[Rfam]
Annotation: Shown here is a 123-nucleotide RNA sequence from Callorhinchus milii, a member of the family "Small nucleolar RNA ACA64". Gene Ontology terms of the family: nucleolus and RNA processing.
RNA sequence: ACACUAUGGAAAUUGCCAUUGGCCUGGUCUGUUGCCUUGUGCAUGAUAAGUGUGCCGAGAUGAAAUGACAUGUUUAGCUCGUGAUCCACUUUGUGUGGGUAAUGAAACCACAUGCCGACAAAC
Numbered sequence: 001a002c003a004c005u006a007u008g009g010a011a012a013u014u015g016c017c018a019u020u021g022g023c024c025u026g027g028u029c030u031g032u033u034g035c036c037u038u039g040u041g042c043a044u045g046a047u048a049a050g051u052g053u054g055c056c057g058a059g060a061u062g063a064a065a066u067g068a069c070a071u072g073u074u075u076a077g078c079u080c081g082u083g084a085u086c087c088a089c090u091u092u093g094u095g096u097g098g099g100u101a102a103u104g105a106a107a108c109c110a111c112a113u114g115c116c117g118a119c120a121a122a123c
Base pairs, nucleotide, nucleotide: 001053002052003051004050005049006047014043015042016041021036022035023034067116069114070113071112072111073110079105080104081103082102087097088096089095
Background: For this family Rfam cites "A computational screen for mammalian pseudouridylation guide H/ACA RNAs" (Schattner et al., RNA, 2006). By type it is an H/ACA-box small nucleolar RNA.